Record summary
The family of this 85-nucleotide RNA from Roseburia sp. 1XD42-69 is "GA-cis RNA". The base pairs follow the family's consensus structure, which is taken from published work. A search with the family's covariance model found it, with a score of 72 bits.

[Rfam]
RNA sequence: UAGAGGAGGGAGGCAAAUGCGCAGCAUUUUUAGGAUGCCUCCCGACGACUUGCCGCCGAACCUUGGUGAGGGGGCGCUACAUUAU
Numbered sequence: 001u002a003g004a005g006g007a008g009g010g011a012g013g014c015a016a017a018u019g020c021g022c023a024g025c026a027u028u029u030u031u032a033g034g035a036u037g038c039c040u041c042c043c044g045a046c047g048a049c050u051u052g053c054c055g056c057c058g059a060a061c062c063u064u065g066g067u068g069a070g071g072g073g074g075c076g077c078u079a080c081a082u083u084a085u
Stems, first nucleotide, its partner, number of pairs: 008043006016028004052075003056071002060067002
Dot-bracket structure: .......((((((..((((.....)))).........))))))........(((.((..((....))..)).)))..........